[Rfam]
This 68-nucleotide RNA sequence from Comamonas flocculans belongs to the Rfam family "ilvH RNA". Pairs were carried over by alignment from the consensus structure, which is taken from published work. The organism belongs to Comamonas, within Bacteria.
RNA sequence: GACGAAUCUAUUGCCCGCCAAGCCCGGCCCUUACCGGGGCCGGGGGAGGGCGGCGAAAAACGGCAGUU
Numbered sequence: 001g002a003c004g005a006a007u008c009u010a011u012u013g014c015c016c017g018c019c020a021a022g023c024c025c026g027g028c029c030c031u032u033a034c035c036g037g038g039g040c041c042g043g044g045g046g047a048g049g050g051c052g053g054c055g056a057a058a059a060a061c062g063g064c065a066g067u068u
Stems, first nucleotide, its partner, number of pairs: 011056003015053005023044009